[Rfam]
RNA sequence: GACCCAAAUUUGAAGUACAGUAGCUUAGUAGGGUCAGCUGAUACUACUGAUCUACACUACUUCGAAUUUGGGCCC
Numbered sequence: 001g002a003c004c005c006a007a008a009u010u011u012g013a014a015g016u017a018c019a020g021u022a023g024c025u026u027a028g029u030a031g032g033g034u035c036a037g038c039u040g041a042u043a044c045u046a047c048u049g050a051u052c053u054a055c056a057c058u059a060c061u062u063c064g065a066a067u068u069u070g071g072g073c074c075c
Base pairs, nucleotide, nucleotide: 001074003072004071005070006069007068008067009066011064012063013062014061015060016059017058020055021054022053023052025050026049027048028047029046030045033042034041035040
This 75-nucleotide RNA sequence from Haemonchus placei belongs to the Rfam family "mir-5928 microRNA precursor family". A search with the family's covariance model found it, with a score of 74 bits.